[Rfam]
RNA sequence: CGAAUAUUCGAGGGGAGCUGGAUAAUGGCCGGCUGAGAAAGUGUACCGAUACACUGACCCUAGGAACCUGAUCCGGGUAAUUCCGGCGUAGGGAAAGAUCGAAAAUCGUUC
Number, nucleotide and partner (000 for none) at each position: 001c000002g000003a000004a000005u000006a099007u098008u097009c000010g000011a061012g060013g059014g058015g000016a000017g033018c032019u031020g030021g029022a000023u000024a000025a000026u000027g000028g000029c021030c020031g019032g018033c017034u000035g000036a000037g000038a000039a000040a055041g054042u053043g052044u051045a000046c000047c000048g000049a000050u000051a044052c043053a042054c041055u040056g000057a000058c014059c013060c012061u011062a000063g000064g000065a000066a000067c092068c091069u090070g089071a000072u000073c086074c085075g084076g083077g000078u000079a000080a000081u000082u000083c076084c075085g074086g073087c000088g000089u070090a069091g068092g067093g000094a000095a000096a000097g008098a007099u006100c000101g000102a000103a000104a000105a000106u000107c000108g000109u000110u000111c000

Shown here is a 111-nucleotide RNA from Polycladomyces abyssicola, a member of the family "TPP riboswitch aptamer (THI element)". A search with the family's covariance model found it, with a score of 70 bits. The source organism's lineage runs through Bacteria, Bacillati, Bacillota, Caryophanales and Polycladomyces.